Shown here is a 414-nucleotide part of an RNA from Sciurus carolinensis, a member of the family "Eukaryotic large subunit ribosomal RNA". A search with the family's covariance model found it, with a score of 2619 bits. Its family is annotated with structural constituent of ribosome and ribosome in the Gene Ontology.

[Rfam]
RNA sequence: AAUAAUACUGCGACAGUAAUUCAACUUAGUACGAGAGGAACAGUUGGUUCAGAUAAUUGGUAAAUGCAAUUAGCUGAAAAGUUAGUGUUGCGAAACUAUCAUCUGACAGAUUAUGACUGAACGCCUCUAAGUCAGAAUCUAUACUGAAAAUGCAGUGUUAUCCACCGUUUCUAAUUCUUUACAAAGUUUUUUAAAUAUUUAAUUUAUUUAUGUGUACAUUUGUUUUUUUAAUAUUAUAAGUGUUUUUUUAAAAGUUUUAAAAAUGGUUUAUAAUGGCUUUAGUGUAAACGCAAUUUAAAUUAUUAGAAACGAUACAUUAUUUGUAAACGACUUAAUUAUAUCCAGGUAUUGUAAGUACAAAAGUAGGCUUGUCUUACGAUUUACUGAGAUACAACCUGCGUUAUUUUAAUGUGU
Numbered sequence: 001a002a003u004a005a006u007a008c009u010g011c012g013a014c015a016g017u018a019a020u021u022c023a024a025c026u027u028a029g030u031a032c033g034a035g036a037g038g039a040a041c042a043g044u045u046g047g048u049u050c051a052g053a054u055a056a057u058u059g060g061u062a063a064a065u066g067c068a069a070u071u072a073g074c075u076g077a078a079a080a081g082u083u084a085g086u087g088u089u090g091c092g093a094a095a096c097u098a099u100c101a102u103c104u105g106a107c108a109g110a111u112u113a114u115g116a117c118u119g120a121a122c123g124c125c126u127c128u129a130a131g132u133c134a135g136a137a138u139c140u141a142u143a144c145u146g147a148a149a150a151u152g153c154a155g156u157g158u159u160a161u162c163c164a165c166c167g168u169u170u171c172u173a174a175u176u177c178u179u180u181a182c183a184a185a186g187u188u189u190u191u192u193a194a195a196u197a198u199u200u201a202a203u204u205u206a207u208u209u210a211u212g213u214g215u216a217c218a219u220u221u222g223u224u225u226u227u228u229u230a231a232u233a234u235u236a237u238a239a240g241u242g243u244u245u246u247u248u249u250a251a252a253a254g255u256u257u258u259a260a261a262a263a264u265g266g267u268u269u270a271u272a273a274u275g276g277c278u279u280u281a282g283u284g285u286a287a288a289c290g291c292a293a294u295u296u297a298a299a300u301u302a303u304u305a306g307a308a309a310c311g312a313u314a315c316a317u318u319a320u321u322u323g324u325a326a327a328c329g330a331c332u333u334a335a336u337u338a339u340a341u342c343c344a345g346g347u348a349u350u351g352u353a354a355g356u357a358c359a360a361a362a363g364u365a366g367g368c369u370u371g372u373c374u375u376a377c378g379a380u381u382u383a384c385u386g387a388g389a390u391a392c393a394a395c396c397u398g399c400g401u402u403a404u405u406u407u408a409a410u411g412u413g414u
Stems, first nucleotide, its partner, number of pairs: 004159008014146004019049001021047006050105005058098003065092005070085006108140002114134005167310009314412005320334001323331001338404003342400001344397003348390002355384003360380001363377005